Annotation: Eukaryotic large subunit ribosomal RNA: a 427-nucleotide part of an RNA from Lotharella oceanica. The source organism's lineage runs through Eukaryota, Sar, Rhizaria, Chlorarachniophyceae and Lotharella.
RNA sequence: UCGAUCAUGUGAUAGCAGUCGAGCUGAGUACGAGAGGAACGGUUCGAUCGGAUACUUGGUACUGCGCUCGAUGGAGCCGUCGAUGGCGCGAAGCUACAUCCGCGGGUUAAUGACUGAACGCCUCUAAAGUCAGAAACCUUGCUAGAAACAUGAUCUCGGCCGGGCCGCACAGCACGCUACGCUACUACUAUCCCUCGGCGCGAACACCGGGGGUACCGGAUAGCACCAUGCCCCUGCUUGCAUGCAGGGGUUCGGAAGUGCAUCCCCCGAUCGACCGUCGAUCUCUCGUCAGGUCGGCGGUCGGUGGGGGAGGGGGGUCGGUCGGGGGAUCCAUUGUAGACGACUUUGCUAACGAUAACCGGGUACUGCAAGCGGGAGAGUGUGCUGCACGAUUCGUUGAGGUUUAACCCGGGUUACCUAGAUCCCC
Numbered sequence: 001u002c003g004a005u006c007a008u009g010u011g012a013u014a015g016c017a018g019u020c021g022a023g024c025u026g027a028g029u030a031c032g033a034g035a036g037g038a039a040c041g042g043u044u045c046g047a048u049c050g051g052a053u054a055c056u057u058g059g060u061a062c063u064g065c066g067c068u069c070g071a072u073g074g075a076g077c078c079g080u081c082g083a084u085g086g087c088g089c090g091a092a093g094c095u096a097c098a099u100c101c102g103c104g105g106g107u108u109a110a111u112g113a114c115u116g117a118a119c120g121c122c123u124c125u126a127a128a129g130u131c132a133g134a135a136a137c138c139u140u141g142c143u144a145g146a147a148a149c150a151u152g153a154u155c156u157c158g159g160c161c162g163g164g165c166c167g168c169a170c171a172g173c174a175c176g177c178u179a180c181g182c183u184a185c186u187a188c189u190a191u192c193c194c195u196c197g198g199c200g201c202g203a204a205c206a207c208c209g210g211g212g213g214u215a216c217c218g219g220a221u222a223g224c225a226c227c228a229u230g231c232c233c234c235u236g237c238u239u240g241c242a243u244g245c246a247g248g249g250g251u252u253c254g255g256a257a258g259u260g261c262a263u264c265c266c267c268c269g270a271u272c273g274a275c276c277g278u279c280g281a282u283c284u285c286u287c288g289u290c291a292g293g294u295c296g297g298c299g300g301u302c303g304g305u306g307g308g309g310g311a312g313g314g315g316g317g318u319c320g321g322u323c324g325g326g327g328g329a330u331c332c333a334u335u336g337u338a339g340a341c342g343a344c345u346u347u348g349c350u351a352a353c354g355a356u357a358a359c360c361g362g363g364u365a366c367u368g369c370a371a372g373c374g375g376g377a378g379a380g381u382g383u384g385c386u387g388c389a390c391g392a393u394u395c396g397u398u399g400a401g402g403u404u405u406a407a408c409c410c411g412g413g414u415u416a417c418c419u420a421g422a423u424c425c426c427c
Stems, first nucleotide, its partner, number of pairs: 003155008013144004018048008049102005057096003063090005068083006104139003111132005161325001163323005327425005332348002336344001356416005361410003365403002372397004377393001380390004